[Rfam]
RNA sequence: GGUCAUGAGUGCCAGCACGAAGCCCCGGCUUGCUGGCCGGCAACCCUCCGCCACGGUGGGGUGCCCCGGGUGACGACCAGGCCGCGCGCCGUUCGGCGUGCCGCAAGCGUGGACG
Numbered sequence: 001g002g003u004c005a006u007g008a009g010u011g012c013c014a015g016c017a018c019g020a021a022g023c024c025c026c027g028g029c030u031u032g033c034u035g036g037c038c039g040g041c042a043a044c045c046c047u048c049c050g051c052c053a054c055g056g057u058g059g060g061g062u063g064c065c066c067c068g069g070g071u072g073a074c075g076a077c078c079a080g081g082c083c084g085c086g087c088g089c090c091g092u093u094c095g096g097c098g099u100g101c102c103g104c105a106a107g108c109g110u111g112g113a114c115g
Stems, first nucleotide, its partner, number of pairs: 001078004009038001011037006021030002039065003044061003048056002081104002084101007
About this RNA
SAM (S-adenosyl methionine) riboswitch aptamer: a 115-nucleotide RNA sequence from Nakamurella alba. Lineage of the source: Bacteria > Bacillati > Actinomycetes > Nakamurellales > Nakamurella. The base pairs follow the family's consensus structure, which is taken from published work.